[Rfam]
RNA sequence: GGGUGGGCAGCUGUUAAGACUUGCAGUGAUGUUUAGCUCCUCUGCAUGUGAACAUCACAGCAAGUCUGUGCUGCUGCCU
Numbered sequence: 001g002g003g004u005g006g007g008c009a010g011c012u013g014u015u016a017a018g019a020c021u022u023g024c025a026g027u028g029a030u031g032u033u034u035a036g037c038u039c040c041u042c043u044g045c046a047u048g049u050g051a052a053c054a055u056c057a058c059a060g061c062a063a064g065u066c067u068g069u070g071c072u073g074c075u076g077c078c079u
Stems, first nucleotide, its partner, number of pairs: 017067007026058010
RNA: mir-499 microRNA precursor family
Organism: Mus musculus